[Rfam]
RNA sequence: AUGCUCACCACGGCUCGGUCCUUUCCACGUGGUAUCGACCUGCCCACAGCGAGCAAGAGAAACGGGACUGGUUUGGGGGUGUCUUGUCGAAGUGACCACGGGACACCAUCGUUUUCAGUACUACA
Numbered sequence: 001a002u003g004c005u006c007a008c009c010a011c012g013g014c015u016c017g018g019u020c021c022u023u024u025c026c027a028c029g030u031g032g033u034a035u036c037g038a039c040c041u042g043c044c045c046a047c048a049g050c051g052a053g054c055a056a057g058a059g060a061a062a063c064g065g066g067a068c069u070g071g072u073u074u075g076g077g078g079g080u081g082u083c084u085u086g087u088c089g090a091a092g093u094g095a096c097c098a099c100g101g102g103a104c105a106c107c108a109u110c111g112u113u114u115u116c117a118g119u120a121c122u123a124c125a
Stems, first nucleotide, its partner, number of pairs: 003054004008049001012044003017040004025032002065121001067119005073111001075109001078107008086097001